[Rfam]
RNA sequence: UAAUCUCAGCUGGCAACUGUGAGAUGUUCAUAAAUCCCCACAGUGGUCUCUGGGAUUA
Dot-bracket structure: (((((((((..((((..((((.(.............).)))).).))).)))))))))
A member of the RNA family "mir-216 microRNA precursor family" from Equus caballus, 58 nucleotides long. Clan: mir-216 clan. Lineage of the source: Eukaryota > Tetrapoda > Mammalia > Equidae > Equus. Gene Ontology terms of the family: RISC complex and miRNA-mediated post-transcriptional gene silencing.